[Rfam]
RNA sequence: UCAUCAGGAAGGAUAAUUCUUACCUGUUCUUCUUUUUGGAAGUCAGAAUAGAACAUGAUGAUUGGAGCUUACAUGACUCAUGAUUAACGUCUCUGCAUAAUCAGGACUUGCAAAACAAGUUUCUUAAUGAUCAUCUAAC
Numbered sequence: 001u002c003a004u005c006a007g008g009a010a011g012g013a014u015a016a017u018u019c020u021u022a023c024c025u026g027u028u029c030u031u032c033u034u035u036u037u038g039g040a041a042g043u044c045a046g047a048a049u050a051g052a053a054c055a056u057g058a059u060g061a062u063u064g065g066a067g068c069u070u071a072c073a074u075g076a077c078u079c080a081u082g083a084u085u086a087a088c089g090u091c092u093c094u095g096c097a098u099a100a101u102c103a104g105g106a107c108u109u110g111c112a113a114a115a116c117a118a119g120u121u122u123c124u125u126a127a128u129g130a131u132c133a134u135c136u137a138a139c
Stems, first nucleotide, its partner, number of pairs: 024046003029042005075093002079089001081086001098129002101126001103124003
Dot-bracket structure: .......................(((..(((((....))))).)))............................((..(.(....)..)..))....((.(.(((................))).).))..........